[Rfam]
The record is an 86-nucleotide RNA sequence from Bacillus aerolatus, which matches "c-di-GMP-I riboswitch aptamer" in Rfam.
RNA sequence: UUAUAGAAAAGGCAAACUUAUUGAAAAAUAAGGACGCAAAGUUUCAGGUCUAAGGGGAUGGCUGCUAUGAUGGCUGGGCUGCCUAU
Numbered sequence: 001u002u003a004u005a006g007a008a009a010a011g012g013c014a015a016a017c018u019u020a021u022u023g024a025a026a027a028a029u030a031a032g033g034a035c036g037c038a039a040a041g042u043u044u045c046a047g048g049u050c051u052a053a054g055g056g057g058a059u060g061g062c063u064g065c066u067a068u069g070a071u072g073g074c075u076g077g078g079c080u081g082c083c084u085a086u
Base pairs, nucleotide, nucleotide: 012037013036017032018031019030020029021028022027040080041079042078043077045076046075047074048071049070050069055065057063

The match comes from Rfam's covariance-model search (72 bits). NCBI's taxonomy places the organism under Bacteria, Bacillota, Bacilli, Bacillaceae, Bacillus.